[Rfam]
Small nucleolar RNA SNORD10: a 138-nucleotide RNA sequence from Eleutherodactylus coqui. By type it is a C/D-box small nucleolar RNA. The source organism's lineage runs through Eukaryota, Metazoa, Deuterostomia, Gnathostomata and Eleutherodactylus. For this family Rfam cites "RNomics: an experimental approach that identifies 201 candidates for novel, small, non-messenger RNAs in mouse" (Huttenhofer et al., EMBO J, 2001).

RNA sequence: GUUUGAUGAUGAGACCCCAUGCGUGUCAUCUGAGCCCCGCCUCGCUCUGCUGCGGCUCUCCGGUCUGCGUUUUGCUGGCUGGAACAGUCUGAAGCAGAGGAUUCUGGGGAAAAUGAUCACACAUUACUAUCUGAGAAC
Numbered sequence: 001g002u003u004u005g006a007u008g009a010u011g012a013g014a015c016c017c018c019a020u021g022c023g024u025g026u027c028a029u030c031u032g033a034g035c036c037c038c039g040c041c042u043c044g045c046u047c048u049g050c051u052g053c054g055g056c057u058c059u060c061c062g063g064u065c066u067g068c069g070u071u072u073u074g075c076u077g078g079c080u081g082g083a084a085c086a087g088u089c090u091g092a093a094g095c096a097g098a099g100g101a102u103u104c105u106g107g108g109g110a111a112a113a114u115g116a117u118c119a120c121a122c123a124u125u126a127c128u129a130u131c132u133g134a135g136a137a138c
Stems, first nucleotide, its partner, number of pairs: 001138004045099007053091001
Dot-bracket structure: ((((........................................(((((((.(.....................................).)))))))...................................))))